[Rfam]
RNA sequence: GUGCAGCUGUGAUGAAUGUAGAAAAAAUUCAUAUGUCAAACUUUAGAGAUUUAGUUAAAUCAAUGAGAAUGACAAUUCUAAAUCUUCUGAGCAC
Numbered sequence: 001g002u003g004c005a006g007c008u009g010u011g012a013u014g015a016a017u018g019u020a021g022a023a024a025a026a027a028u029u030c031a032u033a034u035g036u037c038a039a040a041c042u043u044u045a046g047a048g049a050u051u052u053a054g055u056u057a058a059a060u061c062a063a064u065g066a067g068a069a070u071g072a073c074a075a076u077u078c079u080a081a082a083u084c085u086u087c088u089g090a091g092c093a094c
Base pairs, nucleotide, nucleotide: 001094002093006092007091048061049060050059051058
The family of this 94-nucleotide RNA from Senna tora is "Small nucleolar RNA R64/Z200 family".
On this family, see Galardi et al., Mol Cell Biol 2002: "Purified box C/D snoRNPs are able to reproduce site-specific 2'-O-methylation of target RNA in vitro".